This 105-nucleotide RNA from Paenibacillus flagellatus belongs to the Rfam family "Guanidine-I riboswitch aptamer". It scores 91 bits against the family's covariance model.
RNA sequence: CAAUCGGUCUUCUAGGGUUCCGCGAUCGCGAGCGAUCGGCCAGGUCCGAGAGAAGACGCGCAAGGCGCAGUCUUGCGGACACGGAGGGACAAAAGCCCGGGAGGA
Dot-bracket structure: ......((((((..((...(((((((((....))))))..).)).))....)))))).(((((((.....)))))))..(.[...(((.......))).)..]..
Numbered sequence: 001c002a003a004u005c006g007g008u009c010u011u012c013u014a015g016g017g018u019u020c021c022g023c024g025a026u027c028g029c030g031a032g033c034g035a036u037c038g039g040c041c042a043g044g045u046c047c048g049a050g051a052g053a054a055g056a057c058g059c060g061c062a063a064g065g066c067g068c069a070g071u072c073u074u075g076c077g078g079a080c081a082c083g084g085a086g087g088g089a090c091a092a093a094a095g096c097c098c099g100g101g102a103g104g105a
Stems, first nucleotide, its partner, number of pairs: 007057006015047002020044002022041001023038006059077007080100001082103001086098003